[Rfam]
RNA: c-di-AMP riboswitch aptamer (ydaO/yuaA leader)
RNA sequence: GUCACAAAAAGGCCGAGUUCCACAGUAGUGGAAGCGGGGGACCCAAUUCUUCGGGGUGAAUUCACGGACCGUUCCCAGCGGUCGGUGAUAGGCAAGUUCUUGCCGAACCCGUCAGCUAACCUCGUAGGCGAAUCAUGUGCAUUGGU
Numbered sequence: 001g002u003c004a005c006a007a008a009a010a011g012g013c014c015g016a017g018u019u020c021c022a023c024a025g026u027a028g029u030g031g032a033a034g035c036g037g038g039g040g041a042c043c044c045a046a047u048u049c050u051u052c053g054g055g056g057u058g059a060a061u062u063c064a065c066g067g068a069c070c071g072u073u074c075c076c077a078g079c080g081g082u083c084g085g086u087g088a089u090a091g092g093c094a095a096g097u098u099c100u101u102g103c104c105g106a107a108c109c110c111g112u113c114a115g116c117u118a119a120c121c122u123c124g125u126a127g128g129c130g131a132a133u134c135a136u137g138u139g140c141a142u143u144g145g146u
Stems, first nucleotide, its partner, number of pairs: 012129003018033005034125006044053001054110003062088004091104004